Plant signal recognition particle RNA: a 304-nucleotide sequence from Populus trichocarpa. The base pairs follow the family's consensus structure, which is taken from published work.
RNA sequence: GCUGAGCUCAGCAACGUGAGUUUGUAACCCGAGUGGGGGCUUUAAUGUGGUGGGACGUUGACCAUGCUUAUAAGGUCGGGUCCAGUGCGGCUGUUAUCUGGCCCGCCCGUUCCAAGCCAGGAGUUGAACCAAGGCAUCUUAGUGAAGACCUGGGUGUCUCAGCUCUUAGAGUGGAGGGCAUAGCGUGAGGCUGGUCUCACAGAGCAGCGAUCACCUCUCGCUCCUGGCAGUGGAAGGAUAACGGGUCGGUGCCAUCUGGAUCCGCAUGGCCUGAUGGGCUGGUCCUAAUUGAACCAUCACUUUU
Numbered sequence: 001g002c003u004g005a006g007c008u009c010a011g012c013a014a015c016g017u018g019a020g021u022u023u024g025u026a027a028c029c030c031g032a033g034u035g036g037g038g039g040c041u042u043u044a045a046u047g048u049g050g051u052g053g054g055a056c057g058u059u060g061a062c063c064a065u066g067c068u069u070a071u072a073a074g075g076u077c078g079g080g081u082c083c084a085g086u087g088c089g090g091c092u093g094u095u096a097u098c099u100g101g102c103c104c105g106c107c108c109g110u111u112c113c114a115a116g117c118c119a120g121g122a123g124u125u126g127a128a129c130c131a132a133g134g135c136a137u138c139u140u141a142g143u144g145a146a147g148a149c150c151u152g153g154g155u156g157u158c159u160c161a162g163c164u165c166u167u168a169g170a171g172u173g174g175a176g177g178g179c180a181u182a183g184c185g186u187g188a189g190g191c192u193g194g195u196c197u198c199a200c201a202g203a204g205c206a207g208c209g210a211u212c213a214c215c216u217c218u219c220g221c222u223c224c225u226g227g228c229a230g231u232g233g234a235a236g237g238a239u240a241a242c243g244g245g246u247c248g249g250u251g252c253c254a255u256c257u258g259g260a261u262c263c264g265c266a267u268g269g270c271c272u273g274a275u276g277g278g279c280u281g282g283u284c285c286u287a288a289u290u291g292a293a294c295c296a297u298c299a300c301u302u303u304u
Base pairs, nucleotide, nucleotide: 001040002039003038004023005022006021007020008019009018010017028037029036030035044303045302047300048299049298050297051296052295053294056291057290058288059287060286061283062282063281064280068277069276070275071274073272074271075270076269077268078263079262080261081260082259083258084257085256087255089253090252092251093250098249099248100247101246102245103244104243105242107237108236110235111234112233113232114231116228117227118226119225120224121223122222123221124220126165127164129162132159133158134157135156136155137154138153139152142149143148166171173218174217175216176215177214182211184209185208186207191202192201193200
Its Rfam clan is "SRP clan". The match comes from Rfam's covariance-model search (246 bits). NCBI's taxonomy places the organism under Eukaryota, Streptophyta, Streptophytina, Gunneridae, Populus.